[Rfam]
RNA: Metazoan signal recognition particle RNA
RNA sequence: ACCGGGUGUCGUGGCGGGCGCCUGUGAGCCAGCUUCUUGGCGGUAGACAAGUGUGGAUGGAGUGAGAGGAGGAAUCCUGUGUGUAUCGUUGUCUGCGGCGACCGAGCGUCCGUGCCAAGCGCUACGUCGCCAGGGGUUGUCUGUCGGAGGACGGAUGGUCCCGGGCGCAUAAGGAGUGGUGUACGGCUCAGGGCUGAAAAGCAGCAGGCAAAAGCCACCGCGCGGUGCAGUGGCCGGACAGCGCUUGUGAGUUGACACGUGCACACAGCCUCUUCGAUACCUUCAGACCACUUGUCAU
Numbered sequence: 001a002c003c004g005g006g007u008g009u010c011g012u013g014g015c016g017g018g019c020g021c022c023u024g025u026g027a028g029c030c031a032g033c034u035u036c037u038u039g040g041c042g043g044u045a046g047a048c049a050a051g052u053g054u055g056g057a058u059g060g061a062g063u064g065a066g067a068g069g070a071g072g073a074a075u076c077c078u079g080u081g082u083g084u085a086u087c088g089u090u091g092u093c094u095g096c097g098g099c100g101a102c103c104g105a106g107c108g109u110c111c112g113u114g115c116c117a118a119g120c121g122c123u124a125c126g127u128c129g130c131c132a133g134g135g136g137u138u139g140u141c142u143g144u145c146g147g148a149g150g151a152c153g154g155a156u157g158g159u160c161c162c163g164g165g166c167g168c169a170u171a172a173g174g175a176g177u178g179g180u181g182u183a184c185g186g187c188u189c190a191g192g193g194c195u196g197a198a199a200a201g202c203a204g205c206a207g208g209c210a211a212a213a214g215c216c217a218c219c220g221c222g223c224g225g226u227g228c229a230g231u232g233g234c235c236g237g238a239c240a241g242c243g244c245u246u247g248u249g250a251g252u253u254g255a256c257a258c259g260u261g262c263a264c265a266c267a268g269c270c271u272c273u274u275c276g277a278u279a280c281c282u283u284c285a286g287a288c289c290a291c292u293u294g295u296c297a298u
Base pairs, nucleotide, nucleotide: 001044002043003042004023005022006021007020008019009018010017028041029040030039046296047295048294049293050292051291052290053289058285059284060283061282062281066275067274068273069272070271071270072269077268078267079266080265081264082263083262084261087259088258089257092255093254095252096251103247104246105245106244107243108242109241110237111236114234115233116232117231119228120227121226122225123224125222126221127220128167129166130165131164133162134161135160136159137158138157139156140155141154142153143152144151145150168174176218177217178216179215180214186209187208188207193202194201195200
Dot-bracket structure: ((((((((((......)))))))....(((........)))))).((((((((....(((((...(((((((....((((((((..(((..((.((......(((((((((..((((.(((((.(((((((.(((((((((((((....))))))))))))).))))(.....).(((((.....(((....(((....)))....)))....))))).))).)))))..)))).))...)))))))...)).)).))).))))))))))))))).....)))))...))))))))..